RNA sequence: AGAGAAAAAGGCAAACGGGGUGAGAGCCCCGGACGCAAAGCUUCGGGUCCUAACCUGUUUCAGGAAGGACGGCCGGGUUGCCUCAG
Numbered sequence: 001a002g003a004g005a006a007a008a009a010g011g012c013a014a015a016c017g018g019g020g021u022g023a024g025a026g027c028c029c030c031g032g033a034c035g036c037a038a039a040g041c042u043u044c045g046g047g048u049c050c051u052a053a054c055c056u057g058u059u060u061c062a063g064g065a066a067g068g069a070c071g072g073c074c075g076g077g078u079u080g081c082c083u084c085a086g
Base pairs, nucleotide, nucleotide: 003083004082011036012035016031017030018029019028020027021026034072039079040078041077042076044075045074046073047070048069049068050067051066
RNA: c-di-GMP-I-GGC riboswitch aptamer